A member of the RNA family "mir-393 microRNA precursor family" from Cephalotus follicularis, 88 nucleotides long. The match comes from Rfam's covariance-model search (67 bits). Taxonomically the source falls in Cephalotus (Eukaryota, Streptophytina, Spermatophyta, Oxalidales).

RNA sequence: AAAGGAGGAAUCCAAAGGGAUAGCAUGAUCCAAAAUAUUGGGAUAAUAAAAAACUUUGGAUCAAUGCGAUCCCUUUGGAUGCCUCCUC
Numbered sequence: 001a002a003a004g005g006a007g008g009a010a011u012c013c014a015a016a017g018g019g020a021u022a023g024c025a026u027g028a029u030c031c032a033a034a035a036u037a038u039u040g041g042g043a044u045a046a047u048a049a050a051a052a053a054c055u056u057u058g059g060a061u062c063a064a065u066g067c068g069a070u071c072c073c074u075u076u077g078g079a080u081g082c083c084u085c086c087u088c
Base pairs, nucleotide, nucleotide: 003087004086005085006084008082010080011079012078013077014076015075016074017073018072019071020070021069023067024066025065026063027062028061029060030059031058035055